[Rfam]
RNA sequence: UGGCGCCCAACAUGGGGCUGGAUAGGGAAGAUCCAGUGAGGGAAGAAGAGGUCCCCCAAAGGAACGUUCCACAACAAUUUUCACUCUAGACACGCUGCGGGAACCUGCCUCGGCCACAACCAGAAAUAAGUACAGACAUCUGAUUAUGGGACACGAAAUAAGCAGGCAUGAAUUUUAUGUUAGGCAAUUGCAGGAUACCUUAAGGACAUGAGGAGUAAAGGUUAAAAUAGAGGAUCUAUUGAGAUUCUUUGAAUUUAUUAAAGAAACCUGUCCUU
Numbered sequence: 001u002g003g004c005g006c007c008c009a010a011c012a013u014g015g016g017g018c019u020g021g022a023u024a025g026g027g028a029a030g031a032u033c034c035a036g037u038g039a040g041g042g043a044a045g046a047a048g049a050g051g052u053c054c055c056c057c058a059a060a061g062g063a064a065c066g067u068u069c070c071a072c073a074a075c076a077a078u079u080u081u082c083a084c085u086c087u088a089g090a091c092a093c094g095c096u097g098c099g100g101g102a103a104c105c106u107g108c109c110u111c112g113g114c115c116a117c118a119a120c121c122a123g124a125a126a127u128a129a130g131u132a133c134a135g136a137c138a139u140c141u142g143a144u145u146a147u148g149g150g151a152c153a154c155g156a157a158a159u160a161a162g163c164a165g166g167c168a169u170g171a172a173u174u175u176u177a178u179g180u181u182a183g184g185c186a187a188u189u190g191c192a193g194g195a196u197a198c199c200u201u202a203a204g205g206a207c208a209u210g211a212g213g214a215g216u217a218a219a220g221g222u223u224a225a226a227a228u229a230g231a232g233g234a235u236c237u238a239u240u241g242a243g244a245u246u247c248u249u250u251g252a253a254u255u256u257a258u259u260a261a262a263g264a265a266a267c268c269u270g271u272c273c274u275u
Stems, first nucleotide, its partner, number of pairs: 006027003032049002037046001083127001085125001086123002094115001096112002099109002135152001139150004159202003162198001164196001209251008219237005260275002263272002
Dot-bracket structure: .....(((................)))....((...(........).)).................................(.(((......(.((.((.......)).))..)......)).).).......(...((((....)))).)......((((.(...............................).).)))......((((((((..(((((.........)))))......))))))))........((.((......)).))
This 275-nucleotide RNA from Nannospalax galili belongs to the Rfam family "Mason-Pfizer monkey virus packaging signal". Taxonomically the source falls in Nannospalax (Eukaryota, Amniota, Theria, Glires). The family's consensus secondary structure was predicted with PFOLD. A search with the family's covariance model found it, with a score of 138 bits. The family's RNA type in Rfam is cis-regulatory element. Rfam's curators write: This family represents a group of sequences that are related to the Mason-Pfizer monkey virus (MPMV) packaging signal.